Rfam assigns this 111-nucleotide RNA from Sporosarcina sp. JAI121 to the family "SAM riboswitch aptamer (S box leader)". Rfam's curators write: The SAM riboswitch is found upstream of a number of genes which code for proteins involved in methionine or cysteine biosynthesis in Gram-positive bacteria.
Nucleotides: 111
Base pairs, nucleotide, nucleotide: 003109004108005107006106007105008104013041015040016039017038021031022030023029025081026080027079028078042073043072044071045070047069048068049065050064051063052062077103082100083099084098085097086096087095
Number, partner (000 for none) and nucleotide at each position: 001000u002000a003109c004108u005107u006106a007105u008104c009000a010000a011000g012000a013041g014000a015040g016039a017038c018000u019000g020000a021031g022030g023029g024000a025081u026080a027079g028078g029023c030022c031021c032000g033000a034000u035000g036000a037000c038017g039016u040015c041013c042073a043072g044071c045070a046000a047069c048068c049065c050064c051063u052062u053000g054000c055000g056000u057000a058000a059000a060000g061000u062052g063051a064050g065049g066000a067000a068048g069047g070045u071044g072043c073042u074000a075000a076000c077103u078028c079027c080026u081025a082100c083099a084098g085097a086096g087095u088000g089000a090000a091000a092000u093000u094000c095087a096086u097085u098084c099083u100082g101000a102000a103077a104008g105007a106006u107005g108004a109003g110000c111000u